RNA sequence: UACCGGCUCUCCAAAGGCCGGGGUUACUGAAGAGGCACUACAUCCUUGCCGGGCGUGCGGAUCGGGUUCCCCGUUCCAAGCGAAGGCGGCGCACACGAUAUCGCAACCGCGAGAUCGAGGCGACUGUCACCCGCGAAAGCAGCCGGUUCUUCCG
Numbered sequence: 001u002a003c004c005g006g007c008u009c010u011c012c013a014a015a016g017g018c019c020g021g022g023g024u025u026a027c028u029g030a031a032g033a034g035g036c037a038c039u040a041c042a043u044c045c046u047u048g049c050c051g052g053g054c055g056u057g058c059g060g061a062u063c064g065g066g067u068u069c070c071c072c073g074u075u076c077c078a079a080g081c082g083a084a085g086g087c088g089g090c091g092c093a094c095a096c097g098a099u100a101u102c103g104c105a106a107c108c109g110c111g112a113g114a115u116c117g118a119g120g121c122g123a124c125u126g127u128c129a130c131c132c133g134c135g136a137a138a139g140c141a142g143c144c145g146g147u148u149c150u151u152c153c154g
Base pairs, nucleotide, nucleotide: 001023003021004020005019006018007017008016034050035049036048037047080134081133144154145153146152
RNA: speF leader